The family of this 78-nucleotide RNA sequence from Stegodyphus mimosarum is "Vault RNA". This family of RNAs are found as part of the enigmatic vault ribonucleoprotein complex.

Nucleotides: 078
Base pairs, nucleotide, nucleotide: 002073003072004071005070006069007068012062013061014060015059017058018057019056020055026052027051028050029049030048031047
Number, partner (000 for none) and nucleotide at each position: 001000g002073c003072g004071c005070a006069g007068g008000c009000u010000u011000u012062g013061u014060c015059u016000a017058g018057u019056g020055g021000u022000u023000a024000c025000u026052u027051c028050g029049u030048u031047u032000u033000c034000a035000a036000u037000u038000a039000g040000u041000a042000u043000u044000u045000u046000c047031a048030a049029g050028c051027g052026a053000c054000a055020c056019c057018a058017c059015a060014g061013a062012c063000g064000c065000a066000a067000u068007c069006u070005u071004g072003c073002g074000u075000u076000u077000u078000g